A member of the RNA family "Twister_sister_ribozyme", 83 nucleotides long. The literature on the family includes a 2015 paper in Nat Chem Biol by Weinberg et al., "New classes of self-cleaving ribozymes revealed by comparative genomics analysis".

[Rfam]
RNA sequence: GCAACCCGCAAGGCCGACGACACCCCGCCGCCGCUGGUGCAAGCCCAGCCGCCCCACACGGGGCGGGCGCUCAUGGGUACACA
Numbered sequence: 001g002c003a004a005c006c007c008g009c010a011a012g013g014c015c016g017a018c019g020a021c022a023c024c025c026c027g028c029c030g031c032c033g034c035u036g037g038u039g040c041a042a043g044c045c046c047a048g049c050c051g052c053c054c055c056a057c058a059c060g061g062g063g064c065g066g067g068c069g070c071u072c073a074u075g076g077g078u079a080c081a082c083a
Base pairs, nucleotide, nucleotide: 004078005077006076007075013068014067015066018030019029033049034048035047036046050065051064052063053062054061055060

The family's consensus secondary structure is taken from published work.